[Rfam]
RNA: terC RNA
Organism: Teichococcus rhizosphaerae
RNA sequence: CCGCGGAUCCGGGCCCCUCUGGCGACCCGGCGGCCUCUGCGCCUCGCCGCGGACUGCCGCCUUCGUGAUGUCGGAUCGACUUC
Numbered sequence: 001c002c003g004c005g006g007a008u009c010c011g012g013g014c015c016c017c018u019c020u021g022g023c024g025a026c027c028c029g030g031c032g033g034c035c036u037c038u039g040c041g042c043c044u045c046g047c048c049g050c051g052g053a054c055u056g057c058c059g060c061c062u063u064c065g066u067g068a069u070g071u072c073g074g075a076u077c078g079a080c081u082u083c
Stems, first nucleotide, its partner, number of pairs: 006077007022066004